[Rfam]
RNA sequence: ACAGCUAGAAUACUCUUGCCGAAGACAGCGGACGCCAAUGGCGUAAGGAACUCUUGUCCGCCGAGGAGGAUGUUCACAUCUGUGAAUAUUACGAACUCGUCUGUCGUGCGGCAGGCGGGUUCUUUUGUUUUGCAA
Numbered sequence: 001a002c003a004g005c006u007a008g009a010a011u012a013c014u015c016u017u018g019c020c021g022a023a024g025a026c027a028g029c030g031g032a033c034g035c036c037a038a039u040g041g042c043g044u045a046a047g048g049a050a051c052u053c054u055u056g057u058c059c060g061c062c063g064a065g066g067a068g069g070a071u072g073u074u075c076a077c078a079u080c081u082g083u084g085a086a087u088a089u090u091a092c093g094a095a096c097u098c099g100u101c102u103g104u105c106g107u108g109c110g111g112c113a114g115g116c117g118g119g120u121u122c123u124u125u126u127g128u129u130u131u132g133c134a135a
Stems, first nucleotide, its partner, number of pairs: 028061006034042003095120010
A member of the RNA family "Ribosomal protein L10 leader" from Stomatobaculum longum, 135 nucleotides long. The match comes from Rfam's covariance-model search (58 bits). This family is a putative r-protein leader autoregulatory structure found in B. subtilis and other low-GC Gram-positive bacteria. It is located in the 5' untranslated regions of mRNAs encoding ribosomal proteins L10 and L12 (rplJ-rplL). A Rho-independent transcription terminator structure that is probably involved in regulation is included at the 3' end. It is annotated as a cis-regulatory leader. Lineage of the source: Bacteria > Bacillati > Bacillota > Lachnospirales > Stomatobaculum. Pairs were carried over by alignment from the consensus structure, which was predicted with CMfinder.